Rfam assigns this 247-nucleotide RNA from Aquingentivirus av293 to the family "Listeria sRNA rliG". The source organism's lineage runs through Viruses, Duplodnaviria, Caudoviricetes, Aquingentivirus and Aquingentivirus av293.
RNA sequence: AGAAAAAAUACAACAACAAAUCGAUGGAAGUUUGUUCUGCAUGGCAAUUUAGUAAUUUUUGCCGCACACCUGCCACCUAUUAGUGAGAAGUGAAGAUGAUUACAAAAAUAAAUCAUAUAUUGAGUCUGCGCUCCACUUCUCACUUAUAUUUUAUGACGACUCUUUAAUUUAGAGGAGGGAGACAAUUGAUUAUUUGCCAAAAAGAAAUAAAGGAAAUUAUUAUUACUGGUGCGGACGGUGAAUUGUU
Numbered sequence: 001a002g003a004a005a006a007a008a009u010a011c012a013a014c015a016a017c018a019a020a021u022c023g024a025u026g027g028a029a030g031u032u033u034g035u036u037c038u039g040c041a042u043g044g045c046a047a048u049u050u051a052g053u054a055a056u057u058u059u060u061g062c063c064g065c066a067c068a069c070c071u072g073c074c075a076c077c078u079a080u081u082a083g084u085g086a087g088a089a090g091u092g093a094a095g096a097u098g099a100u101u102a103c104a105a106a107a108a109u110a111a112a113u114c115a116u117a118u119a120u121u122g123a124g125u126c127u128g129c130g131c132u133c134c135a136c137u138u139c140u141c142a143c144u145u146a147u148a149u150u151u152u153a154u155g156a157c158g159a160c161u162c163u164u165u166a167a168u169u170u171a172g173a174g175g176a177g178g179g180a181g182a183c184a185a186u187u188g189a190u191u192a193u194u195u196g197c198c199a200a201a202a203a204g205a206a207a208u209a210a211a212g213g214a215a216a217u218u219a220u221u222a223u224u225a226c227u228g229g230u231g232c233g234g235a236c237g238g239u240g241a242a243u244u245g246u247u
Stems, first nucleotide, its partner, number of pairs: 027059006034053001037052003041048001042046001083143008106121002108118003122133004158198001160174004176195003180191002219246002

Pairs were carried over by alignment from the consensus structure, which was predicted with RNAalifold.
A reference for the family is Toledo-Arana et al. (2009), "The Listeria transcriptional landscape from saprophytism to virulence", Nature.